[Rfam]
RNA sequence: CAUGCACUGGUGGGGUCCCUCAGCCUGGCCUGCGCCCUCUCGCAAUUCUGGACCCCUUGGAGGAUGUUGGAGAGCGGGUUUUGGCCUGAUCCCCACAGGCCAGGCUGAGGGACCCCACUGGUGCAUG
Numbered sequence: 001c002a003u004g005c006a007c008u009g010g011u012g013g014g015g016u017c018c019c020u021c022a023g024c025c026u027g028g029c030c031u032g033c034g035c036c037c038u039c040u041c042g043c044a045a046u047u048c049u050g051g052a053c054c055c056c057u058u059g060g061a062g063g064a065u066g067u068u069g070g071a072g073a074g075c076g077g078g079u080u081u082u083g084g085c086c087u088g089a090u091c092c093c094c095a096c097a098g099g100c101c102a103g104g105c106u107g108a109g110g111g112a113c114c115c116c117a118c119u120g121g122u123g124c125a126u127g
Stems, first nucleotide, its partner, number of pairs: 003125002006122001008120003012116014027101006
Record summary
This 127-nucleotide sequence from Myotis lucifugus belongs to the Rfam family "mir-9193 microRNA precursor family". NCBI's taxonomy places the organism under Eukaryota, Craniata, Sarcopterygii, Boreoeutheria, Myotis.